[Rfam]
RNA sequence: GAGUUCCCAUCUGUGGCGAGUCUAAGGGGGUUAACCCCGGAGGCGUAGGGAAACCGAAGGCCCGCAGUCGGGUUAACCGACGAGGGGCUGGGUCCGUUAAGGGCCCGUAGCCACAGGUGGGAGACCAGAAACCGAGCGAUCUAGCCCGGGGUAGGGUGAAGCGGGGCGAAAGCCCCGUGGAGGCCCGAUUGGGGUUCUGACGUGCAAAUCGUUCCCGUGACCCUGGGCUAGGGGCAAAAGACCAAUCAAGCUCGGUGAUAGCUGGUU
Numbered sequence: 001g002a003g004u005u006c007c008c009a010u011c012u013g014u015g016g017c018g019a020g021u022c023u024a025a026g027g028g029g030g031u032u033a034a035c036c037c038c039g040g041a042g043g044c045g046u047a048g049g050g051a052a053a054c055c056g057a058a059g060g061c062c063c064g065c066a067g068u069c070g071g072g073u074u075a076a077c078c079g080a081c082g083a084g085g086g087g088c089u090g091g092g093u094c095c096g097u098u099a100a101g102g103g104c105c106c107g108u109a110g111c112c113a114c115a116g117g118u119g120g121g122a123g124a125c126c127a128g129a130a131a132c133c134g135a136g137c138g139a140u141c142u143a144g145c146c147c148g149g150g151g152u153a154g155g156g157u158g159a160a161g162c163g164g165g166g167c168g169a170a171a172g173c174c175c176c177g178u179g180g181a182g183g184c185c186c187g188a189u190u191g192g193g194g195u196u197c198u199g200a201c202g203u204g205c206a207a208a209u210c211g212u213u214c215c216c217g218u219g220a221c222c223c224u225g226g227g228c229u230a231g232g233g234g235c236a237a238a239a240g241a242c243c244a245a246u247c248a249a250g251c252u253c254g255g256u257g258a259u260a261g262c263u264g265g266u267u
Stems, first nucleotide, its partner, number of pairs: 005122013020044004026038004048055002060088004067081004091105004125265002128262001132255006141231011152219001154186004161178007191216004197211001199210002233243002
Source information: The record is a 267-nucleotide part of an RNA from Caldivirga maquilingensis, which matches "Archaeal large subunit ribosomal RNA" in Rfam. NCBI's taxonomy places the organism under Archaea, Thermoproteati, Thermoproteota, Caldivirga, Caldivirga maquilingensis.